Streptomyces-metH RNA: a 167-nucleotide RNA sequence from Streptomyces aurantiogriseus.
[Rfam]
RNA sequence: CUCGUCCGUCCCGUGGACGCCCUGACCAUAAGCCCCCGGACCCGGCUACCCUGGCGGCGAGCGCCCUCCACGGGAAGCUCCGUGUGCCGACCCGCGGGGGCGGCUCGGGGAGCGACCGCGGGCGCCGCAAAGCCGACAGCCGUCGCAUCCGAGGGAGCCCUUUCAUG
Dot-bracket structure: ............................................................(((.(.((....................................................)).).)))...((.(((....))))).....................
Numbered sequence: 001c002u003c004g005u006c007c008g009u010c011c012c013g014u015g016g017a018c019g020c021c022c023u024g025a026c027c028a029u030a031a032g033c034c035c036c037c038g039g040a041c042c043c044g045g046c047u048a049c050c051c052u053g054g055c056g057g058c059g060a061g062c063g064c065c066c067u068c069c070a071c072g073g074g075a076a077g078c079u080c081c082g083u084g085u086g087c088c089g090a091c092c093c094g095c096g097g098g099g100g101c102g103g104c105u106c107g108g109g110g111a112g113c114g115a116c117c118g119c120g121g122g123c124g125c126c127g128c129a130a131a132g133c134c135g136a137c138a139g140c141c142g143u144c145g146c147a148u149c150c151g152a153g154g155g156a157g158c159c160c161u162u163u164c165a166u167g
Stems, first nucleotide, its partner, number of pairs: 061128003065124001067122002132146002135144003